The family of this 151-nucleotide RNA from Brachionus plicatilis is "U4atac minor spliceosomal RNA". The source organism's lineage runs through Eukaryota, Opisthokonta, Rotifera, Monogononta and Brachionus. A search with the family's covariance model found it, with a score of 69 bits.
RNA sequence: AUCGUUCUUGUCUUGGGCAGUGGAUUAUCCAGGGAACGAAUAGUGAGGAUAAUUUUGCUGACACCUAUACUUAUAGAUUUCAUAUCUAUAAUUUAAAAAUCCGCACCGGACUUGACACCAACUGUCAUGUUUAGGUGCAAUUUCUGACUGC
Numbered sequence: 001a002u003c004g005u006u007c008u009u010g011u012c013u014u015g016g017g018c019a020g021u022g023g024a025u026u027a028u029c030c031a032g033g034g035a036a037c038g039a040a041u042a043g044u045g046a047g048g049a050u051a052a053u054u055u056u057g058c059u060g061a062c063a064c065c066u067a068u069a070c071u072u073a074u075a076g077a078u079u080u081c082a083u084a085u086c087u088a089u090a091a092u093u094u095a096a097a098a099a100u101c102c103g104c105a106c107c108g109g110a111c112u113u114g115a116c117a118c119c120a121a122c123u124g125u126c127a128u129g130u131u132u133a134g135g136u137g138c139a140a141u142u143u144c145u146g147a148c149u150g151c
Stems, first nucleotide, its partner, number of pairs: 005019001007017003020058004024053007036044002103138005111129001113127004
Notes: The family has 61 seed sequences and 1,648 matches in Rfam 15.1. It is annotated as a spliceosomal small nuclear RNA.